[Rfam]
Overview
The family of this 85-nucleotide RNA sequence from Pandoraea terrae is "SucA RNA motif". Gene Ontology term of the family: regulation of translation. NCBI's taxonomy places the organism under Bacteria, Pseudomonadota, Betaproteobacteria, Burkholderiaceae, Pandoraea. A search with the family's covariance model found it, with a score of 78 bits. It is annotated as a cis-regulatory element. The family's consensus secondary structure is taken from published work.
RNA sequence: CCGCAAUCCGCUAUCCGGUCAGGCCGUGUCGCGGAAGGUUUCGGUAACCCGCUAUUUCUCGAGACACUCGACGAAAAGGUGAGCG
Numbered sequence: 001c002c003g004c005a006a007u008c009c010g011c012u013a014u015c016c017g018g019u020c021a022g023g024c025c026g027u028g029u030c031g032c033g034g035a036a037g038g039u040u041u042c043g044g045u046a047a048c049c050c051g052c053u054a055u056u057u058c059u060c061g062a063g064a065c066a067c068u069c070g071a072c073g074a075a076a077a078g079g080u081g082a083g084c085g
Base pairs, nucleotide, nucleotide: 002085003084004083007035008034009033010032011031016026017025018024019023037049038048039047040046050081051080052079053078057074058073059071060070061069062068063067
Dot-bracket structure: .(((..(((((....((((...))))....))))).((((.....))))((((...(((((((...))))).))...)))).)))